[Rfam]
RNA sequence: AAUCGAUUAUUGCCUAAUGUCCGCGUCGCAUUCGACCCGGGCUACGGGGGAACCAGUCUUGGGUGAAUUGAUCUCGCAACUAGGGAUCAUAGGGAACCUUCAACCGAACCCUUAAGCUAACCUCGUCGGCAUCGGAAGGGGUAUAC
Numbered sequence: 001a002a003u004c005g006a007u008u009a010u011u012g013c014c015u016a017a018u019g020u021c022c023g024c025g026u027c028g029c030a031u032u033c034g035a036c037c038c039g040g041g042c043u044a045c046g047g048g049g050g051a052a053c054c055a056g057u058c059u060u061g062g063g064u065g066a067a068u069u070g071a072u073c074u075c076g077c078a079a080c081u082a083g084g085g086a087u088c089a090u091a092g093g094g095a096a097c098c099u100u101c102a103a104c105c106g107a108a109c110c111c112u113u114a115a116g117c118u119a120a121c122c123u124c125g126u127c128g129g130c131a132u133c134g135g136a137a138g139g140g141g142u143a144u145a146c
Stems, first nucleotide, its partner, number of pairs: 011131004019042005044126006055059001061111003069089007092105002

The record is a 146-nucleotide sequence from Paenibacillus antri, which matches "c-di-AMP riboswitch aptamer (ydaO/yuaA leader)" in Rfam. It scores 60 bits against the family's covariance model.